[Rfam]
RNA: Purine riboswitch aptamer
Organism: Pontibacillus litoralis
RNA sequence: CACUACACUCACAGCAUUCCUUGUAUAAGUUUGAGAAUAUGGCUCAAGCGUUUCUACAAAGCUACCGUAAAUAGCUUAACUACAAGGGAUUACGUUUAUUUA
Numbered sequence: 001c002a003c004u005a006c007a008c009u010c011a012c013a014g015c016a017u018u019c020c021u022u023g024u025a026u027a028a029g030u031u032u033g034a035g036a037a038u039a040u041g042g043c044u045c046a047a048g049c050g051u052u053u054c055u056a057c058a059a060a061g062c063u064a065c066c067g068u069a070a071a072u073a074g075c076u077u078a079a080c081u082a083c084a085a086g087g088g089a090u091u092a093c094g095u096u097u098a099u100u101u102a
Base pairs, nucleotide, nucleotide: 018088019087020086021085022084023083024082025081029049030048031047032046033045034044035043059077060076061075062074063073064072